[Rfam]
RNA sequence: CAGCCUCUGGCAAAAAUUGUGAAUGCUG
Numbered sequence: 001c002a003g004c005c006u007c008u009g010g011c012a013a014a015a016a017u018u019g020u021g022a023a024u025g026c027u028g
Stems, first nucleotide, its partner, number of pairs: 001028004008023001010020004
Shown here is a 28-nucleotide RNA sequence, a member of the family "L19-Flavobacteria ribosomal protein leader". It is one of the family's seed sequences. The family's consensus secondary structure is taken from published work.